The record is a 101-nucleotide RNA from Virgibacillus sp. SK37, which matches "Bacillaceae-1 RNA" in Rfam.
It scores 47 bits against the family's covariance model.
The family has 95 seed sequences and 5,721 matches in Rfam 15.1.
The family's RNA type in Rfam is small RNA.
NCBI's taxonomy places the organism under Bacteria, Bacillati, Bacillota, Bacillaceae, Virgibacillus.
[Rfam]
RNA sequence: UAUAGGGGCUGGAAAGCUAAAGUCGCGACGUCCUGGGGCUGCGCAUACUCGCCCCAUCAAAACCCAUUGUCGCAACGCCUUCAUGACCAACAUCGUGUUGG
Numbered sequence: 001u002a003u004a005g006g007g008g009c010u011g012g013a014a015a016g017c018u019a020a021a022g023u024c025g026c027g028a029c030g031u032c033c034u035g036g037g038g039c040u041g042c043g044c045a046u047a048c049u050c051g052c053c054c055c056a057u058c059a060a061a062a063c064c065c066a067u068u069g070u071c072g073c074a075a076c077g078c079c080u081u082c083a084u085g086a087c088c089a090a091c092a093u094c095g096u097g098u099u100g101g
Base pairs, nucleotide, nucleotide: 012082013081014080016078017077025073026072027071028070029069087101088100089099090098091097